[Rfam]
RNA: U7 small nuclear RNA
Nucleotides: 062
Base pairs, nucleotide, nucleotide: 032060033059035057036056037055039053040052041051042050
Number, partner (000 for none) and nucleotide at each position: 001000a002000a003000g004000a005000g006000u007000u008000a009000c010000g011000g012000c013000u014000c015000u016000u017000a018000g019000a020000a021000u022000u023000u024000g025000u026000c027000u028000a029000g030000c031000a032060g033059g034000c035057u036056u037055u038000c039053c040052a041051c042050u043000u044000u045000u046000u047000g048000c049000c050042a051041g052040u053039g054000u055037g056036a057035a058000c059033c060032c061000a062000a